The record is a 112-nucleotide RNA from Cryptococcus deneoformans, which matches "U5 spliceosomal RNA" in Rfam. From the family's description: U5 RNA is a component of both types of known spliceosome. The precise function of this molecule is unknown, though it is known that the 5' loop is required for splice site selection and p220 binding, and that both the 3' stem-loop and the Sm site are important for Sm protein binding and cap methylation.
RNA sequence: AGCGGGGGAUCAAACACAAAUCGAAUAAAUCUCUCGCCUUUUACUAGAGAUAUCCGUGUAUUUGGUCCGCAAACCCGCGUUCAAAUUUGUUCCACACCCAUUUCCUUGGGCU
Numbered sequence: 001a002g003c004g005g006g007g008g009a010u011c012a013a014a015c016a017c018a019a020a021u022c023g024a025a026u027a028a029a030u031c032u033c034u035c036g037c038c039u040u041u042u043a044c045u046a047g048a049g050a051u052a053u054c055c056g057u058g059u060a061u062u063u064g065g066u067c068c069g070c071a072a073a074c075c076c077g078c079g080u081u082c083a084a085a086u087u088u089g090u091u092c093c094a095c096a097c098c099c100a101u102u103u104c105c106u107u108g109g110g111c112u
Base pairs, nucleotide, nucleotide: 003077004076005075006074008067009066010065011064012063013062014061016059017058018057027053029051030050031049032048033047034046094112097110098109099108100107
Dot-bracket structure: ..((((.(((((((.(((........(.((((((...........)))))).)...))).)))))))......))))................(..((((......)))).)

By type it is a spliceosomal small nuclear RNA.